Record summary:
Rfam assigns this 147-nucleotide sequence from Acidovorax sp. MR-S7 to the family "radC RNA". By type it is a cis-regulatory element. Rfam 15.1 lists 500 matches to the family in 142 species. Taxonomically the source falls in Acidovorax (Bacteria, Betaproteobacteria, Burkholderiales, Comamonadaceae).
[Rfam]
RNA sequence: UCCUUUGCGUCAUGUUCGUCGGCGUUGCCGACACAUGCCCAGGCAGCCGCGACCUUCGAGGCUGCACGCACGGGAAACCGCGCUGGUCGUUUCUUCCUACGGACGCGCCGCGUCCAUCCACCCACAAGGGAUCUCUCCCUUGUGGGC
Numbered sequence: 001u002c003c004u005u006u007g008c009g010u011c012a013u014g015u016u017c018g019u020c021g022g023c024g025u026u027g028c029c030g031a032c033a034c035a036u037g038c039c040c041a042g043g044c045a046g047c048c049g050c051g052a053c054c055u056u057c058g059a060g061g062c063u064g065c066a067c068g069c070a071c072g073g074g075a076a077a078c079c080g081c082g083c084u085g086g087u088c089g090u091u092u093c094u095u096c097c098u099a100c101g102g103a104c105g106c107g108c109c110g111c112g113u114c115c116a117u118c119c120a121c122c123c124a125c126a127a128g129g130g131a132u133c134u135c136u137c138c139c140u141u142g143u144g145g146g147c
Stems, first nucleotide, its partner, number of pairs: 011037005018032006043065006051088004068083002071080003118146002124143008